[Rfam]
RNA sequence: GCUGUUUUCGGAUGGAUGACUCCGCAAUUUCAACACUUGACAAGAUGACAGAAAUUGCACAGUAUCCAUCUGCAAUCCGCC
Numbered sequence: 001g002c003u004g005u006u007u008u009c010g011g012a013u014g015g016a017u018g019a020c021u022c023c024g025c026a027a028u029u030u031c032a033a034c035a036c037u038u039g040a041c042a043a044g045a046u047g048a049c050a051g052a053a054a055u056u057g058c059a060c061a062g063u064a065u066c067c068a069u070c071u072g073c074a075a076u077c078c079g080c081c
Base pairs, nucleotide, nucleotide: 009072010071011070012069013068014067015066016065017064019063020062024058025057026056027055028054029053030052031051

Record summary
Rfam assigns this 81-nucleotide RNA sequence from Stegastes partitus to the family "mir-363 microRNA precursor family". On this family, see Zhou et al., Genomics 2009: "In silico detection and characteristics of novel microRNA genes in the Equus caballus genome using an integrated ab initio and comparative genomic approach". The base pairs follow the family's consensus structure, which was predicted with RNAalifold.